[Rfam]
Nucleotides: 397
Base pairs, nucleotide, nucleotide: 001393002392003391004390005389006388007387008386009385011382012348013347014346015345016344017343018342020045021044023042024041025040026039027038028037050380051379052378054377055376056375057374058373059229060228061227062226066283067282068281069280071225072224073223074222075221076090077089078088079087080086091105092103093102094101095100106220107219111218112217113214114213115212128159129158130155131154132153133152134151135150136149137148138147139146140145167185168184169183170182171181172180187209188207189206190205191204192203193202194201195200233305234304235303236302263296264295265294266293267292268291275287276286277285278284312331313330314329315328316327317326318325319324
Number, partner (000 for none) and nucleotide at each position: 001393c002392g003391a004390g005389u006388c007387g008386g009385c010000g011382g012348g013347g014346c015345g016344g017343c018342c019000g020045c021044g022000u023042c024041g025040g026039c027038g028037g029000a030000c031000c032000a033000c034000g035000g036000u037028c038027c039026g040025c041024c042023g043000c044021c045020g046000a047000g048000g049000a050380a051379a052378g053000u054377c055376c056375g057374g058373a059229c060228u061227c062226c063000a064000c065000a066283g067282g068281g069280c070000a071225g072224g073223g074222u075221g076090g077089u078088u079087g080086c081000u082000a083000a084000c085000g086080g087079c088078a089077a090076c091105c092103c093102g094101g095100g096000g097000c098000g099000a100095c101094c102093c103092g104000c105091g106220g107219g108000a109000c110000a111218g112217u113214g114213c115212c116000a117000c118000a119000g120000a121000a122000a123000a124000c125000a126000g127000a128159c129158c130155g131154c132153c133152c134151g135150g136149c137148c138147g139146c140145u141000c142000u143000c144000g145140a146139g147138c148137g149136g150135c151134c152133g153132g154131g155130u156000a157000a158129g159128g160000g161000u162000g163000a164000a165000a166000c167185g168184g169183u170182g171181g172180u173000g174000u175000a176000a177000g178000a179000g180172a181171c182170c183169a184168c185167c186000a187209g188207c189206a190205c191204c192203c193202c194201g195200g196000g197000u198000g199000a200195c201194c202193g203192g204191g205190g206189u207188g208000g209187c210000u211000c212115g213114g214113u215000a216000a217112a218111c219107c220106c221075c222074a223073c224072c225071c226062g227061g228060a229059g230000c231000a232000a233305g234304g235303c236302c237000a238000a239000g240000a241000g242000g243000g244000c245000g246000c247000c248000g249000c250000g251000u252000g253000c254000g255000g256000c257000g258000c259000c260000u261000g262000c263296g264295c265294a266293g267292g268291c269000g270000a271000u272000c273000g274000a275287g276286g277285g278284c279000u280069g281068c282067c283066c284278g285277c286276c287275c288000g289000a290000u291268g292267c293266c294265u295264g296263c297000g298000g299000g300000u301000a302236g303235g304234c305233c306000g307000c308000u309000g310000g311000a312331g313330c314329c315328u316327g317326c318325c319324g320000g321000c322000a323000a324319c325318g326317g327316c328315a329314g330313g331312u332000c333000g334000a335000g336000a337000u338000g339000g340000a341000u342018g343017g344016c345015c346014g347013c348012u349000g350000c351000c352000c353000g354000g355000c356000g357000c358000g359000a360000g361000c362000c363000g364000g365000g366000u367000a368000c369000a370000g371000g372000a373058u374057c375056c376055g377054g378052c379051u380050u381000a382011c383000a384000a385009g386008c387007c388006g389005a390004c391003u392002c393001g394000u395000u396000c397000g

Shown here is a 397-nucleotide RNA from Kutzneria kofuensis, a member of the family "Bacterial RNase P class A". Rfam classes the family as a ribozyme. Gene Ontology terms of the family: tRNA processing, dimeric ribonuclease P complex and ribonuclease P activity.